About this RNA
Tick-borne Flavivirus exoribonuclease-resistant RNA element: a 93-nucleotide RNA from Rhodospirillum rubrum. The base pairs follow the family's consensus structure, which was predicted with LocARNA. It is one of the family's seed sequences.
RNA sequence: AGGGCGCAUUCCGGCAGCACACCAGUGAGAGUGGUGACGGGAAACUGGUCACUCCCGACGGAGCUGCGCCUUGUGAAACUUUGUGAGACCCCU
Numbered sequence: 001a002g003g004g005c006g007c008a009u010u011c012c013g014g015c016a017g018c019a020c021a022c023c024a025g026u027g028a029g030a031g032u033g034g035u036g037a038c039g040g041g042a043a044a045c046u047g048g049u050c051a052c053u054c055c056c057g058a059c060g061g062a063g064c065u066g067c068g069c070c071u072u073g074u075g076a077a078a079c080u081u082u083g084u085g086a087g088a089c090c091c092c093u
Base pairs, nucleotide, nucleotide: 001072002071003070004069005068006067007066009063010062011061012060013059020036021035022034023033024032038057039056040055041054042053
Description: On this family, see Villordo et al., PLoS Pathog 2015: "Dengue virus RNA structure specialization facilitates host adaptation". From the family's description: The exoribonuclease-resistant RNA elements (xrRNA) are described throughout all groups of flaviviruses. Usually, each virus harbors two xrRNAs, xrRNA1 and xrRNA2, in the beginning of the 3' UTR. The formation of these stem-loops, especially xrRNA1, is vital to ensure resistance against XRN1 activity. The Y-shaped stem-loop is also termed SL II and SL IV, respectively.